About this RNA
The record is a 53-nucleotide sequence from Niveispirillum lacus, which matches "Guanidine-II riboswitch aptamer (mini-ykkC)" in Rfam.
RNA sequence: CCGCCGGGACGACCCGGCCCAAGCUGACGGGCACCCAGACCGGGACGACCCGG
Numbered sequence: 001c002c003g004c005c006g007g008g009a010c011g012a013c014c015c016g017g018c019c020c021a022a023g024c025u026g027a028c029g030g031g032c033a034c035c036c037a038g039a040c041c042g043g044g045a046c047g048a049c050c051c052g053g
Stems, first nucleotide, its partner, number of pairs: 003018006040053005

Record summary
On this family, see Weinberg et al., Nucleic Acids Res 2007: "Identification of 22 candidate structured RNAs in bacteria using the CMfinder comparative genomics pipeline". The match comes from Rfam's covariance-model search (32 bits). Simpler in structure and has fewer highly conserved nucleotide positions than the ykkC-yxkD leader. Despite this each of its two stem-loop structures directly bind free guanidine. Therefore, mini-ykkC RNA motif represents a distinct class of guanidine-sensing RNAs.